[Rfam]
RNA sequence: UUUUGUAUUCUUCCACAGCUUUCUUGAACUGCAUCGAAAGAGUUCUUUUGCAUGGCAUUCUUGUGUUCUCGUUGUUUUGCGGUUCAAUAAAGCUGUGGGAAGAUACAGAUA
Numbered sequence: 001u002u003u004u005g006u007a008u009u010c011u012u013c014c015a016c017a018g019c020u021u022u023c024u025u026g027a028a029c030u031g032c033a034u035c036g037a038a039a040g041a042g043u044u045c046u047u048u049u050g051c052a053u054g055g056c057a058u059u060c061u062u063g064u065g066u067u068c069u070c071g072u073u074g075u076u077u078u079g080c081g082g083u084u085c086a087a088u089a090a091a092g093c094u095g096u097g098g099g100a101a102g103a104u105a106c107a108g109a110u111a
Stems, first nucleotide, its partner, number of pairs: 003108005013098003017094006024087004029082005
Dot-bracket structure: ..(((((.....(((.((((((.((((.(((((............................................))))).)))).)))))).))).....)))))...

The record is a 111-nucleotide sequence from Lathyrus oleraceus, which matches "MIR396 microRNA precursor family" in Rfam. The organism belongs to Lathyrus, within Eukaryota. The family's consensus secondary structure was predicted with WAR. For this family Rfam cites "Expression of Arabidopsis MIRNA genes" (Xie et al., Plant Physiol, 2005). Gene Ontology terms of the family: miRNA-mediated post-transcriptional gene silencing and RISC complex.